Annotation
Rfam assigns this 98-nucleotide RNA sequence from Amphiplicatus metriothermophilus to the family "Bacterial small signal recognition particle RNA". By type it is a non-coding RNA gene. The literature on the family includes a 2003 paper in Nucleic Acids Res by Rosenblad et al., "SRPDB: Signal Recognition Particle Database". Rfam's curators write: The signal recognition particle (SRP) is a universally conserved ribonucleoprotein involved in the co-translational targeting of proteins to membranes. Pairs were carried over by alignment from the consensus structure, which is taken from published work.

RNA sequence: GCGGAAGGCUGGCGGACGAGCCUCUCGCCAACCCGGUCAGGUCCGGAAGGAAGCAGCCGUAACGAGUUUCGGCCCGGGUCGUUUCAGCCUUCCGCCUC
Numbered sequence: 001g002c003g004g005a006a007g008g009c010u011g012g013c014g015g016a017c018g019a020g021c022c023u024c025u026c027g028c029c030a031a032c033c034c035g036g037u038c039a040g041g042u043c044c045g046g047a048a049g050g051a052a053g054c055a056g057c058c059g060u061a062a063c064g065a066g067u068u069u070c071g072g073c074c075c076g077g078g079u080c081g082u083u084u085c086a087g088c089c090u091u092c093c094g095c096c097u098c
Base pairs, nucleotide, nucleotide: 004092005091006090007089008088011083012082013081014080017076018075020073021072022071024066025065026064027063034059035058036057037056042051043050044049